A member of the RNA family "Plant signal recognition particle RNA" from Morus notabilis, 306 nucleotides long. The match comes from Rfam's covariance-model search (263 bits). The family's consensus secondary structure is taken from published work. Rfam classes the family as a non-coding RNA gene.

RNA sequence: GCCGGGCUCAGUAACGAGGGCUUGUCACCCAAGUGGGGGCUUAAAGGUGGUGGGACAUUGGCUCAGCCCAGUGGGCCGGGUCUGUUGUGGCUAUAUUCUGGCAUGCCCGUUCCAAGCCGAGAGUUGGGCCGUGCGACCUGGGCGAAGGCCCAAGUUUCGCGGUCACUAGAGUGGAGGGCACCGCGUGAGGCUGGUUUCACAGAGCAGCGCAAACCUCCCGCUCUCGGCAGUGGAAGGAUAACAGGCUGGUGCUACUCAGAUCCAAACAUGACCAAAUGGGCAGUUCCUAAUCGAACCACCACUUUU
Numbered sequence: 001g002c003c004g005g006g007c008u009c010a011g012u013a014a015c016g017a018g019g020g021c022u023u024g025u026c027a028c029c030c031a032a033g034u035g036g037g038g039g040c041u042u043a044a045a046g047g048u049g050g051u052g053g054g055a056c057a058u059u060g061g062c063u064c065a066g067c068c069c070a071g072u073g074g075g076c077c078g079g080g081u082c083u084g085u086u087g088u089g090g091c092u093a094u095a096u097u098c099u100g101g102c103a104u105g106c107c108c109g110u111u112c113c114a115a116g117c118c119g120a121g122a123g124u125u126g127g128g129c130c131g132u133g134c135g136a137c138c139u140g141g142g143c144g145a146a147g148g149c150c151c152a153a154g155u156u157u158c159g160c161g162g163u164c165a166c167u168a169g170a171g172u173g174g175a176g177g178g179c180a181c182c183g184c185g186u187g188a189g190g191c192u193g194g195u196u197u198c199a200c201a202g203a204g205c206a207g208c209g210c211a212a213a214c215c216u217c218c219c220g221c222u223c224u225c226g227g228c229a230g231u232g233g234a235a236g237g238a239u240a241a242c243a244g245g246c247u248g249g250u251g252c253u254a255c256u257c258a259g260a261u262c263c264a265a266a267c268a269u270g271a272c273c274a275a276a277u278g279g280g281c282a283g284u285u286c287c288u289a290a291u292c293g294a295a296c297c298a299c300c301a302c303u304u305u306u
Stems, first nucleotide, its partner, number of pairs: 001040003004023006028037003043306011056293001058290003061286001064283001066281001068279003072275001074273002077270001078263007087255004092251002098249005104243002107237002110235005116228009127164007135156003139152005166171001173218005183210004191202003